Description
The family of this 51-nucleotide RNA sequence from Lacrimispora saccharolytica is "Streptococcus sRNA SpF59 (ldcC RNA)". For this family Rfam cites "Control of virulence by small RNAs in Streptococcus pneumoniae" (Mann et al., PLoS Pathog, 2012). The family's RNA type in Rfam is small RNA. The sequence is in the family's curated seed alignment.
[Rfam]
RNA sequence: UGACCACUUCGUAGAAGUUAAGCCCAGACGGACAGGCGGGUCAGGUGCCGA
Numbered sequence: 001u002g003a004c005c006a007c008u009u010c011g012u013a014g015a016a017g018u019u020a021a022g023c024c025c026a027g028a029c030g031g032a033c034a035g036g037c038g039g040g041u042c043a044g045g046u047g048c049c050g051a
Base pairs, nucleotide, nucleotide: 001043002042003041004040005039006018007017008016009015010014